RNA: MIR7486 microRNA precursor family
Organism: Gossypium harknessii
Nucleotides: 087
Base pairs, nucleotide, nucleotide: 001086002085003084004083005082006081007080008079009078010077011076012075013074014073015072017070019068020067021066024063025062026061027060028059029058031056032055033054035052036051037050040047041046
Number, partner (000 for none) and nucleotide at each position: 001086c002085u003084u004083g005082a006081g007080g008079a009078a010077g011076c012075g013074u014073u015072u016000a017070g018000g019068c020067u021066a022000c023000a024063u025062g026061g027060a028059c029058a030000a031056a032055a033054a034000u035052c036051g037050u038000u039000c040047c041046c042000u043000u044000a045000a046041g047040g048000g049000c050037g051036c052035g053000c054033u055032u056031u057000a058029u059028g060027u061026c062025c063024a064000a065000g066021u067020a068019g069000g070017c071000a072015a073014a074013a075012c076011g077010c078009u079008u080007c081006c082005u083004c084003a085002a086001g087000g